Notes:
A member of the RNA family "tRNA" from Xylaria flabelliformis, 124 nucleotides long. Rfam classes the family as a transfer RNA. The match comes from Rfam's covariance-model search (51 bits). Gene Ontology term of the family: triplet codon-amino acid adaptor activity.
RNA sequence: UCUCGAUUGGUCUAGUGGUCAGGAUACCUGCUUGUCAUUCGAUAACUCGACUCCAUCAACAGUGGUGUUGAUUUACCAUAGACAUAAUCCGCAGGUGGCCGGGGUUCGAUUCCCCGAUCGAGAG
Numbered sequence: 001u002c003u004c005g006a007u008u009g010g011u012c013u014a015g016u017g018g019u020c021a022g023g024a025u026a027c028c029u030g031c032u033u034g035u036c037a038u039u040c041g042a043u044a045a046c047u048c049g050a051c052u053c054c055a056u057c058a059a060c061a062g063u064g065g066u067g068u069u070g071a072u073u074u075a076c077c078a079u080a081g082a083c084a085u086a087a088u089c090c091g092c093a094g095g096u097g098g099c100c101g102g103g104g105u106u107c108g109a110u111u112c113c114c115c116g117a118u119c120g121a122g123a124g
Base pairs, nucleotide, nucleotide: 001123002122003121004120005119006118007117010025011024012023013022027095028094029093030092031091100116101115102114103113104112